[Rfam]
RNA sequence: GACUGCCAUCAAGGAUUCAUUCUGUGAACCUUGACCCACUGCCAGAUAAGAGUUCAUGCCCAGCUCUUUCAUCUGCUCUUCGCCAAUGACUUUGGUUGCCAGAUUCUCGGCGUUGUCAGCAAGCUGGCGUGCCUGUGAUGCUAAAUAGGCGGCAUUACAGAUGUUGGGUGGCAUGUUGGCCAGAUCUUUUGU
Numbered sequence: 001g002a003c004u005g006c007c008a009u010c011a012a013g014g015a016u017u018c019a020u021u022c023u024g025u026g027a028a029c030c031u032u033g034a035c036c037c038a039c040u041g042c043c044a045g046a047u048a049a050g051a052g053u054u055c056a057u058g059c060c061c062a063g064c065u066c067u068u069u070c071a072u073c074u075g076c077u078c079u080u081c082g083c084c085a086a087u088g089a090c091u092u093u094g095g096u097u098g099c100c101a102g103a104u105u106c107u108c109g110g111c112g113u114u115g116u117c118a119g120c121a122a123g124c125u126g127g128c129g130u131g132c133c134u135g136u137g138a139u140g141c142u143a144a145a146u147a148g149g150c151g152g153c154a155u156u157a158c159a160g161a162u163g164u165u166g167g168g169u170g171g172c173a174u175g176u177u178g179g180c181c182a183g184a185u186c187u188u189u190u191g192u
Stems, first nucleotide, its partner, number of pairs: 005186001012032003016028005033043001035041001050059001062077003079131001081129005087123001092119005099109001101107002133160003137156006164183004169178001
RNA: Yersinia sRNA 276